[Rfam]
RNA sequence: UUUGGAUCAGUGAUGUUGUAUAUUACUGCGUUAUCUAUCUGUAAUAAAUUAGUUUUUGAAGAUAACUUAUUAUCCUGAGAUCCAAU
Number, nucleotide and partner (000 for none) at each position: 001u000002u085003u084004g083005g082006a081007u080008c000009a000010g000011u000012g000013a000014u000015g000016u000017u000018g000019u000020a000021u000022a000023u000024u000025a000026c000027u000028g000029c000030g000031u000032u000033a000034u000035c000036u000037a000038u000039c000040u000041g000042u000043a000044a000045u000046a000047a000048a000049u000050u000051a000052g000053u000054u000055u000056u000057u000058g000059a000060a000061g000062a000063u000064a000065a000066c000067u000068u000069a000070u000071u000072a000073u000074c000075c000076u000077g000078a000079g000080a007081u006082c005083c004084a003085a002086u000